This 60-nucleotide sequence belongs to the Rfam family "cow-rumen-1 RNA". The family's RNA type in Rfam is small RNA. The sequence is in the family's curated seed alignment.
[Rfam]
RNA sequence: UCACCGGCAUCUGUGUUAAAGUUUGACAGAGUAAAUCCGGCACCGGUCAAGACGAAGAGG
Numbered sequence: 001u002c003a004c005c006g007g008c009a010u011c012u013g014u015g016u017u018a019a020a021g022u023u024u025g026a027c028a029g030a031g032u033a034a035a036u037c038c039g040g041c042a043c044c045g046g047u048c049a050a051g052a053c054g055a056a057g058a059g060g
Stems, first nucleotide, its partner, number of pairs: 004040004010030004015022002